[Rfam]
RNA: tRNA
Organism: Trametes pubescens
RNA sequence: UCCCUCUUAGCUCAGUUGGUAGAGCGCGUCACUAGUACGAUUACAUCGUGUAAUGACGAGGUCAGUCGUUCAAAUCGGCUAGCGGGAA
Numbered sequence: 001u002c003c004c005u006c007u008u009a010g011c012u013c014a015g016u017u018g019g020u021a022g023a024g025c026g027c028g029u030c031a032c033u034a035g036u037a038c039g040a041u042u043a044c045a046u047c048g049u050g051u052a053a054u055g056a057c058g059a060g061g062u063c064a065g066u067c068g069u070u071c072a073a074a075u076c077g078g079c080u081a082g083c084g085g086g087a088a
Base pairs, nucleotide, nucleotide: 001087002086003085004084006082007081010025011024012023013022027058028057029056030055031054064080065079066078067077068076